[Rfam]
The family of this 105-nucleotide sequence from Parapedobacter composti is "TPP riboswitch aptamer (THI element)". A reference for the family is Welz and Breaker (2007), "Ligand binding and gene control characteristics of tandem riboswitches in Bacillus anthracis", RNA.

RNA sequence: CCAAUGCUUUAGGGGUGUUUCCCGCGGUAAUACGUGGGAGGCUGAGAAUAACCCUCAUAACCUGCUCAGGAUAAUGCCUGCGAAGGGAAAAGUAACGGAUUCCUC
Numbered sequence: 001c002c003a004a005u006g007c008u009u010u011a012g013g014g015g016u017g018u019u020u021c022c023c024g025c026g027g028u029a030a031u032a033c034g035u036g037g038g039a040g041g042c043u044g045a046g047a048a049u050a051a052c053c054c055u056c057a058u059a060a061c062c063u064g065c066u067c068a069g070g071a072u073a074a075u076g077c078c079u080g081c082g083a084a085g086g087g088a089a090a091a092g093u094a095a096c097g098g099a100u101u102c103c104u105c
Stems, first nucleotide, its partner, number of pairs: 006093005011055004017042010061086003067080004